[Rfam]
RNA sequence: AAAAAGGGCUUCUGUUGUGAGUGGGAUACGUAGGGUGGCUCUGUUUGCUCUUCAUGUGGAAUCGACAUCAAGAUAUUUUGGAAGCAUAAUUUUUUGGUACUGGGACAGCUGGUGAUCAUUGGUCCUGGCGCUUGA
Numbered sequence: 001a002a003a004a005a006g007g008g009c010u011u012c013u014g015u016u017g018u019g020a021g022u023g024g025g026a027u028a029c030g031u032a033g034g035g036u037g038g039c040u041c042u043g044u045u046u047g048c049u050c051u052u053c054a055u056g057u058g059g060a061a062u063c064g065a066c067a068u069c070a071a072g073a074u075a076u077u078u079u080g081g082a083a084g085c086a087u088a089a090u091u092u093u094u095u096g097g098u099a100c101u102g103g104g105a106c107a108g109c110u111g112g113u114g115a116u117c118a119u120u121g122g123u124c125c126u127g128g129c130g131c132u133u134g135a
Stems, first nucleotide, its partner, number of pairs: 008085005013026001015024003027056002030053001032051007057080006103133002106130001108129005114124004
Dot-bracket structure: .......((((((.(((....))).)((.(.(((((((......))))))).).))((((((............))))))))))).................((.(.(((((.((((...)))))))))).))..
A member of the RNA family "U11 spliceosomal RNA" from Oryctolagus cuniculus, 135 nucleotides long. The organism belongs to Oryctolagus, within Eukaryota. Pairs were carried over by alignment from the consensus structure, which is taken from published work. A reference for the family is Montzka and Steitz (1988), "Additional low-abundance human small nuclear ribonucleoproteins: U11, U12, etc", Proc Natl Acad Sci U S A.